[Rfam]
RNA sequence: CCAAUCCUGUCCGGUAAGGUUUAGUCAACCACCGGAAGCGAGUCUUGCGUAGUAGGUAGAGAUGUCUGCACGAAGCGUAGACAGCGACUGCUGAGGGUAUGCUAUUGAGCCUCGAAACUGUCCUAAAUGCCGAAGUCCUGGUUGUUAGAUAGAUUAGGACAACAUCAAACCAGCGUUACGACGAGUUGGGAAGAUUCGGCCGGGGUCUGAGAACA
Number, nucleotide and partner (000 for none) at each position: 001c000002c000003a000004a000005u000006c000007c000008u000009g000010u036011c035012c034013g033014g032015u000016a000017a000018g030019g029020u028021u027022u184023a000024g182025u181026c000027a021028a020029c019030c018031a000032c014033c013034g012035g011036a010037a000038g085039c084040g000041a000042g082043u081044c080045u079046u077047g076048c072049g071050u070051a000052g000053u068054a067055g066056g065057u064058a063059g000060a000061g000062a000063u058064g057065u056066c055067u054068g053069c000070a050071c049072g048073a000074a000075g000076c047077g046078u000079a045080g044081a043082c042083a000084g039085c038086g000087a000088c000089u000090g000091c000092u000093g000094a000095g000096g000097g000098u000099a000100u000101g000102c000103u000104a000105u000106u209107g207108a000109g206110c205111c204112u203113c202114g201115a000116a000117a000118c000119u000120g000121u000122c000123c000124u000125a000126a000127a000128u000129g200130c199131c198132g197133a196134a195135g160136u159137c158138c000139u000140g155141g154142u153143u152144g000145u000146u000147a000148g000149a000150u000151a000152g143153a142154u141155u140156a000157g000158g137159a136160c135161a000162a000163c000164a000165u194166c193167a000168a000169a000170c189171c188172a187173g186174c185175g000176u000177u000178a000179c000180g000181a025182c024183g000184a022185g174186u173187u172188g171189g170190g000191a000192a000193g166194a165195u134196u133197c132198g131199g130200c129201c114202g113203g112204g111205g110206u109207c107208u000209g106210a000211g000212a000213a000214c000215a000
Shown here is a 215-nucleotide RNA from Niastella populi, a member of the family "Group II catalytic intron D1-D4-6". Rfam's curators write: Group II introns are found in rRNA, tRNA and mRNA of organelles in fungi, plants and protists, and also in mRNA in bacteria. The pairing is the family consensus, mapped onto this sequence. Lineage of the source: Bacteria > Bacteroidota > Chitinophagales > Chitinophagaceae > Niastella. A search with the family's covariance model found it, with a score of 134 bits.